[Rfam]
RNA: tRNA
Organism: Diceros bicornis
RNA sequence: GUUUCUGUAGUGUAGUGGUCAUCAUGCUUGCCUAACACACAAGAGGUCCUUGGUUCAAAACCAAGUGGAAACA
Numbered sequence: 001g002u003u004u005c006u007g008u009a010g011u012g013u014a015g016u017g018g019u020c021a022u023c024a025u026g027c028u029u030g031c032c033u034a035a036c037a038c039a040c041a042a043g044a045g046g047u048c049c050u051u052g053g054u055u056c057a058a059a060a061c062c063a064a065g066u067g068g069a070a071a072c073a
Base pairs, nucleotide, nucleotide: 001072002071003070004069005068006067007066010025011024012023027043028042029041030040049065050064051063052062053061